Annotation: Shown here is a 95-nucleotide sequence from Pseudoxanthomonas sp., a member of the family "Xanthomonas sRNA sX7". The match comes from Rfam's covariance-model search (59 bits). Rfam classes the family as a small RNA.
[Rfam]
RNA sequence: CGCUAUCCCGUUCCCCGCCGGAAUGCUGUCAGUGGCGUGACGGCGGGGAACGGGACCUUGAAGGCCAGGAGGGCAGGCGCCAUGGAUGGCGCAUA
Numbered sequence: 001c002g003c004u005a006u007c008c009c010g011u012u013c014c015c016c017g018c019c020g021g022a023a024u025g026c027u028g029u030c031a032g033u034g035g036c037g038u039g040a041c042g043g044c045g046g047g048g049a050a051c052g053g054g055a056c057c058u059u060g061a062a063g064g065c066c067a068g069g070a071g072g073g074c075a076g077g078c079g080c081c082a083u084g085g086a087u088g089g090c091g092c093a094u095a
Base pairs, nucleotide, nucleotide: 009052010051011050012049013048014047015046016045017044018043019042020041023038024037025036026035064074065073066072077092078091079090080089081088

NCBI's taxonomy places the organism under Bacteria, Pseudomonadota, Lysobacterales, Lysobacteraceae, Pseudoxanthomonas. The base pairs follow the family's consensus structure, which was predicted with RNAalifold.